[Rfam]
RNA sequence: GGGGACCUUCGGGGCCCUACAACCAUCUCGGCGCCAUCACCACGGGGCCGGGGACAAGCAAAACGGAAGACAGAGA
Numbered sequence: 001g002g003g004g005a006c007c008u009u010c011g012g013g014g015c016c017c018u019a020c021a022a023c024c025a026u027c028u029c030g031g032c033g034c035c036a037u038c039a040c041c042a043c044g045g046g047g048c049c050g051g052g053g054a055c056a057a058g059c060a061a062a063a064c065g066g067a068a069g070a071c072a073g074a075g076a
Base pairs, nucleotide, nucleotide: 001018002017003016004015006014007013008012027052028051029050030049031048032047

Shown here is a 76-nucleotide RNA sequence, a member of the family "L2-Alphaproteobacteria ribosomal protein leader". The sequence is in the family's curated seed alignment. The literature on the family includes a 2020 paper in BMC Microbiol by Eckert and Weinberg, "Discovery of 20 novel ribosomal leader candidates in bacteria and archaea". Pairs were carried over by alignment from the consensus structure, which is taken from published work.